RNA sequence: UGAGCCUCUUUACAAUGCUGCCUUGUAGACCCAGAAUCAAGCAGCAUUGUACAGGGCUAUGA
Numbered sequence: 001u002g003a004g005c006c007u008c009u010u011u012a013c014a015a016u017g018c019u020g021c022c023u024u025g026u027a028g029a030c031c032c033a034g035a036a037u038c039a040a041g042c043a044g045c046a047u048u049g050u051a052c053a054g055g056g057c058u059a060u061g062a
Base pairs, nucleotide, nucleotide: 006056007055008054009053011051012050013049014048015047016046017045018044019043020042022041023040024039025038
Dot-bracket structure: .....((((.((((((((((.((((............)))))))))))))).))))......

mir-103/107 microRNA precursor family: a 62-nucleotide RNA sequence from Ictalurus punctatus. Gene Ontology terms of the family: miRNA-mediated post-transcriptional gene silencing and RISC complex. The organism belongs to Ictalurus, within Eukaryota. For this family Rfam cites "miRNPs: a novel class of ribonucleoproteins containing numerous microRNAs" (Mourelatos et al., Genes Dev, 2002). Rfam's curators put it in the seed alignment. This family consists of the mammalian microRNA (miRNA) precursors mir-103 and mir107. Animal miRNAs are transcribed as ~70nt precursors and subsequently processed by the Dicer enzyme to give a ~22nt product. In this case the mature sequence comes from the 3' arm of the precursor. Pairs were carried over by alignment from the consensus structure, which was predicted with RNAalifold.